RNA sequence: CCCGUUCUGCGUGACUGGCGAGGCGAGGUGGGCAUGACCACCGGGAAGCGCAGGAAGAUACCGCCGCUCGCCUGGGCACCCCCG
Numbered sequence: 001c002c003c004g005u006u007c008u009g010c011g012u013g014a015c016u017g018g019c020g021a022g023g024c025g026a027g028g029u030g031g032g033c034a035u036g037a038c039c040a041c042c043g044g045g046a047a048g049c050g051c052a053g054g055a056a057g058a059u060a061c062c063g064c065c066g067c068u069c070g071c072c073u074g075g076g077c078a079c080c081c082c083c084g
Stems, first nucleotide, its partner, number of pairs: 003057001005055008015045002017072005028041004063077003
The record is an 84-nucleotide RNA sequence from Parvibaculum sedimenti, which matches "ZMP/ZTP riboswitch aptamer (pfl RNA motif)" in Rfam. The match comes from Rfam's covariance-model search (61 bits). The family's consensus secondary structure is taken from published work.